[Rfam]
RNA sequence: AUAAGUGAAUAGGUAAUACGUCGUAUAAUAUUGGGGAUAUGGCCCAAGAGUUUCUACCAAGCUACCUUAAAUGGCUUGACUACGGCGAUAGGACGGAUGCGU
Numbered sequence: 001a002u003a004a005g006u007g008a009a010u011a012g013g014u015a016a017u018a019c020g021u022c023g024u025a026u027a028a029u030a031u032u033g034g035g036g037a038u039a040u041g042g043c044c045c046a047a048g049a050g051u052u053u054c055u056a057c058c059a060a061g062c063u064a065c066c067u068u069a070a071a072u073g074g075c076u077u078g079a080c081u082a083c084g085g086c087g088a089u090a091g092g093a094c095g096g097a098u099g100c101g102u
Base pairs, nucleotide, nucleotide: 019087020086021085022084023083024082025081029049031047032046033045034044035043058078059077060076061075062074063073064072
Shown here is a 102-nucleotide RNA from Bacillus sp. SJS, a member of the family "Purine riboswitch aptamer". A search with the family's covariance model found it, with a score of 83 bits. Taxonomically the source falls in Bacillus (Bacteria, Bacillati, Bacillota, Caryophanales).